RNA: MIR1435 microRNA precursor family
Organism: Oryza barthii
RNA sequence: UCACUUUUUUCUUAGUCAAACUUCUUUAAGUUUGAUCAAAUUUAUAGAAAAAUAUAGUAGUAUUUUCAAUACAAAACAAACAUUGUAUCAAAAUAUAUUCAAUGUUAAAUUUAAUGAAACUAAUUUGGUGUUGUGGAUGUUGCUAUUUUUUUCUAUAAACAUGAUCAAACCUUAAAAACUUUGAUUAAGAAAAAAGUCAA
Numbered sequence: 001u002c003a004c005u006u007u008u009u010u011c012u013u014a015g016u017c018a019a020a021c022u023u024c025u026u027u028a029a030g031u032u033u034g035a036u037c038a039a040a041u042u043u044a045u046a047g048a049a050a051a052a053u054a055u056a057g058u059a060g061u062a063u064u065u066u067c068a069a070u071a072c073a074a075a076a077c078a079a080a081c082a083u084u085g086u087a088u089c090a091a092a093a094u095a096u097a098u099u100c101a102a103u104g105u106u107a108a109a110u111u112u113a114a115u116g117a118a119a120c121u122a123a124u125u126u127g128g129u130g131u132u133g134u135g136g137a138u139g140u141u142g143c144u145a146u147u148u149u150u151u152u153c154u155a156u157a158a159a160c161a162u163g164a165u166c167a168a169a170c171c172u173u174a175a176a177a178a179c180u181u182u183g184a185u186u187a188a189g190a191a192a193a194a195a196g197u198c199a200a
Stems, first nucleotide, its partner, number of pairs: 005195005011189010022178002025175002031169005045155008055145003059141007067133002072127004